[Rfam]
RNA sequence: GAUUCUAAAUAAUUCAAUCCUAGGUUGACCCAAGAAUCUUUUUGGAGUCUAAUUUAUUUUUACAAAUGA
Numbered sequence: 001g002a003u004u005c006u007a008a009a010u011a012a013u014u015c016a017a018u019c020c021u022a023g024g025u026u027g028a029c030c031c032a033a034g035a036a037u038c039u040u041u042u043u044g045g046a047g048u049c050u051a052a053u054u055u056a057u058u059u060u061u062a063c064a065a066a067u068g069a
Base pairs, nucleotide, nucleotide: 014028015027016026017025018024033050034049035048037046038045039044
About this RNA: Shown here is a 69-nucleotide sequence from Pelagibacterales bacterium SAG-MED39, a member of the family "bablM sRNA". Lineage of the source: Bacteria > Pseudomonadati > Pseudomonadota > Alphaproteobacteria > Candidatus Pelagibacterales. It scores 69 bits against the family's covariance model. For this family Rfam cites "Identification of candidate structured RNAs in the marine organism 'Candidatus Pelagibacter ubique'" (Meyer et al., BMC Genomics, 2009). The base pairs follow the family's consensus structure, which is taken from published work.